[Rfam]
Nucleotides: 130
Stems, first nucleotide, its partner, number of pairs: 003058006012045002016041001017039001019037003069124001071122003075118001082110003087105004
Number, partner (000 for none) and nucleotide at each position: 001000g002000u003058u004057g005056c006055u007054u008053c009000a010000u011000a012045u013044g014000c015000u016041c017039u018000c019037u020036c021035u022000u023000a024000a025000a026000a027000u028000u029000g030000a031000a032000g033000u034000g035021a036020g037019g038000c039017a040000u041016g042000u043000u044013c045012a046000a047000g048000u049000u050000u051000c052000c053008g054007a055006a056005g057004c058003a059000u060000a061000a062000a063000u064000g065000a066000a067000u068000a069124g070000u071122c072121a073120g074000u075118a076000u077000u078000a079000a080000a081000c082110a083109g084108c085000a086000u087105g088104g089103u090102g091000u092000a093000u094000u095000u096000c097000u098000g099000u100000u101000g102090c103089a104088u105087c106000u107000u108084g109083c110082u111000a112000c113000c114000u115000g116000u117000c118075u119000c120073c121072u122071g123000c124069u125000a126000c127000a128000u129000u130000c